[Rfam]
RNA: Bacterial RNase P class B
Organism: Malacoplasma penetrans
RNA sequence: UAAUGAUAGUUGGUUGCUAUAAGUUUCUUAUAGAGGAAAGUCCAUGCUAGCACUAUCUGAGAUGAUAGUAGUGUUUGUUGCAGGUAUAUAAAAAAUAAAACCUGGAAGAUUUACUCUUACGACACAACAAAACCUAAAAUGGUUGCAUUAUGGUUGAGUUGUAUAAAGUGCCACAGAGACGAGCAAAGAAGAAAUUCUUGAUAUGAAACGCGGUAAACUCCACAAGCUAGAAACCUAAAUUUGGUAAGGGAACUGGUUAUAAAAGAAUUCAAUUUUAUAAACGGAAGAAUGUAUGUUCUUAGAUAAAUAACCAACGUCUAGAUAAUAGAUACAGAACAUGGCUUAUUUCA
Numbered sequence: 001u002a003a004u005g006a007u008a009g010u011u012g013g014u015u016g017c018u019a020u021a022a023g024u025u026u027c028u029u030a031u032a033g034a035g036g037a038a039a040g041u042c043c044a045u046g047c048u049a050g051c052a053c054u055a056u057c058u059g060a061g062a063u064g065a066u067a068g069u070a071g072u073g074u075u076u077g078u079u080g081c082a083g084g085u086a087u088a089u090a091a092a093a094a095a096u097a098a099a100a101c102c103u104g105g106a107a108g109a110u111u112u113a114c115u116c117u118u119a120c121g122a123c124a125c126a127a128c129a130a131a132a133c134c135u136a137a138a139a140u141g142g143u144u145g146c147a148u149u150a151u152g153g154u155u156g157a158g159u160u161g162u163a164u165a166a167a168g169u170g171c172c173a174c175a176g177a178g179a180c181g182a183g184c185a186a187a188g189a190a191g192a193a194a195u196u197c198u199u200g201a202u203a204u205g206a207a208a209c210g211c212g213g214u215a216a217a218c219u220c221c222a223c224a225a226g227c228u229a230g231a232a233a234c235c236u237a238a239a240u241u242u243g244g245u246a247a248g249g250g251a252a253c254u255g256g257u258u259a260u261a262a263a264a265g266a267a268u269u270c271a272a273u274u275u276u277a278u279a280a281a282c283g284g285a286a287g288a289a290u291g292u293a294u295g296u297u298c299u300u301a302g303a304u305a306a307a308u309a310a311c312c313a314a315c316g317u318c319u320a321g322a323u324a325a326u327a328g329a330u331a332c333a334g335a336a337c338a339u340g341g342c343u344u345a346u347u348u349c350a
Base pairs, nucleotide, nucleotide: 004350005349006348008346009315010314011313012312013311014310015309017033018032019031020030021029022028038344039343040342042341043340044339045338046337047230048229049228050227051226052069053068054067055066056065057064075225076224077223078222080221081104082103083102084101085100105120106118107117108116109115121220122219124162125161126160127159131155132154133153134152138149139148140147168218169217170214171213172212186199187198188197189196190195234249235248236247253284254283255282257280258279259278285300286299287298288297289296290295317329318328319327320326